[Rfam]
RNA sequence: ACAGCUGAGCCAUCUCUCCAGCCCUUUCAAAAUAUUUUUUAAAUUAUAUUUAUGGGGCUGGAGAGAUGGCUCAGAGGU
Numbered sequence: 001a002c003a004g005c006u007g008a009g010c011c012a013u014c015u016c017u018c019c020a021g022c023c024c025u026u027u028c029a030a031a032a033u034a035u036u037u038u039u040u041a042a043a044u045u046a047u048a049u050u051u052a053u054g055g056g057g058c059u060g061g062a063g064a065g066a067u068g069g070c071u072c073a074g075a076g077g078u
Base pairs, nucleotide, nucleotide: 002077005074006073007072008071009070010069011068012067013066014065015064016063017062018061019060020059021058022057023056024055
RNA: mir-3473 microRNA precursor family